[Rfam]
RNA sequence: UAGUAAUCAACCAUAGUACGAGAGGAACUGGUUGUUCAGACCUCUGGUUCGUGCACUUGGUCGAGCGACCAGUGGUGCCACGCUACCAUCUGUUGGAUUAUGCCUGAAUGCCUCUAAGGCCGAAUCCGCGCUGGAACAUUGUUGGCAAUGAUACUUUCUGGGGGUCCUGUGUUUCGACCGGUGCGAAACAAUCAAUGUGAUUAUAUAGGUGGCCUCUCUUCGGAGAAGGCUGCCGUUGAAACCCGAACGCCAUGUCCGCUGGGGCGUACUGGCCCGAUAUGUCCUGUCUCGGAUAGGAGUCAGCCCCCAGUGGAAAGACCAAGGGUUUAGUACGAAGUUGGGACUCAGAAUCGUGUGUAAACGACUCAAGUAAGGCAGGGUGUUGUAAGCGGUAGAGCAGUUUUUAUGCUGCGAUCUGCUAAGACUUUUCCCUCUUGCUUUUGAAGAUUCGU
Numbered sequence: 001u002a003g004u005a006a007u008c009a010a011c012c013a014u015a016g017u018a019c020g021a022g023a024g025g026a027a028c029u030g031g032u033u034g035u036u037c038a039g040a041c042c043u044c045u046g047g048u049u050c051g052u053g054c055a056c057u058u059g060g061u062c063g064a065g066c067g068a069c070c071a072g073u074g075g076u077g078c079c080a081c082g083c084u085a086c087c088a089u090c091u092g093u094u095g096g097a098u099u100a101u102g103c104c105u106g107a108a109u110g111c112c113u114c115u116a117a118g119g120c121c122g123a124a125u126c127c128g129c130g131c132u133g134g135a136a137c138a139u140u141g142u143u144g145g146c147a148a149u150g151a152u153a154c155u156u157u158c159u160g161g162g163g164g165u166c167c168u169g170u171g172u173u174u175c176g177a178c179c180g181g182u183g184c185g186a187a188a189c190a191a192u193c194a195a196u197g198u199g200a201u202u203a204u205a206u207a208g209g210u211g212g213c214c215u216c217u218c219u220u221c222g223g224a225g226a227a228g229g230c231u232g233c234c235g236u237u238g239a240a241a242c243c244c245g246a247a248c249g250c251c252a253u254g255u256c257c258g259c260u261g262g263g264g265c266g267u268a269c270u271g272g273c274c275c276g277a278u279a280u281g282u283c284c285u286g287u288c289u290c291g292g293a294u295a296g297g298a299g300u301c302a303g304c305c306c307c308c309a310g311u312g313g314a315a316a317g318a319c320c321a322a323g324g325g326u327u328u329a330g331u332a333c334g335a336a337g338u339u340g341g342g343a344c345u346c347a348g349a350a351u352c353g354u355g356u357g358u359a360a361a362c363g364a365c366u367c368a369a370g371u372a373a374g375g376c377a378g379g380g381u382g383u384u385g386u387a388a389g390c391g392g393u394a395g396a397g398c399a400g401u402u403u404u405u406a407u408g409c410u411g412c413g414a415u416c417u418g419c420u421a422a423g424a425c426u427u428u429u430c431c432c433u434c435u436u437g438c439u440u441u442u443g444a445a446g447a448u449u450c451g452u
Base pairs, nucleotide, nucleotide: 001133002132003131004130006036008034009033010032011031012030013029037092038091039090040089045085046084047083053078054077055076056075057072058071059070060069061068062067094128095127096126102120103119104118105117144344146342150338348450349449350448351447352446354368355367357365372441373440374439375438376437377436378432379431380430382425383424389419390418391417392416394415397412398411399410400409401408
RNA: Eukaryotic large subunit ribosomal RNA, nucleotides 2926 to 3377